RNA sequence: GUGAAGUGAUGUUAGAAAUCAUUUGUCUGUCAAUCCACUGACUCUUUUGGUUGAUGACUAAUAUGAAUCCCAACAGGUUCUGAUCGC
Numbered sequence: 001g002u003g004a005a006g007u008g009a010u011g012u013u014a015g016a017a018a019u020c021a022u023u024u025g026u027c028u029g030u031c032a033a034u035c036c037a038c039u040g041a042c043u044c045u046u047u048u049g050g051u052u053g054a055u056g057a058c059u060a061a062u063a064u065g066a067a068u069c070c071c072a073a074c075a076g077g078u079u080c081u082g083a084u085c086g087c
Stems, first nucleotide, its partner, number of pairs: 001087004
Dot-bracket structure: ((((...............................................................................))))
RNA: Small nucleolar RNA snoR14